[Rfam]
RNA sequence: CCUCGAGGACGACCUCGAGGACGACGGGGACGACCUCGAGGACGACCUCG
Numbered sequence: 001c002c003u004c005g006a007g008g009a010c011g012a013c014c015u016c017g018a019g020g021a022c023g024a025c026g027g028g029g030a031c032g033a034c035c036u037c038g039a040g041g042a043c044g045a046c047c048u049c050g
Stems, first nucleotide, its partner, number of pairs: 001020008037050005